[Rfam]
RNA: serC leader
RNA sequence: GGGCGGGCCACAUCCCCCCACCGGGGUGCGCCUAUUCUGUGAGGGAUAGGAGAU
Numbered sequence: 001g002g003g004c005g006g007g008c009c010a011c012a013u014c015c016c017c018c019c020a021c022c023g024g025g026g027u028g029c030g031c032c033u034a035u036u037c038u039g040u041g042a043g044g045g046a047u048a049g050g051a052g053a054u
Stems, first nucleotide, its partner, number of pairs: 011028006032049004037044002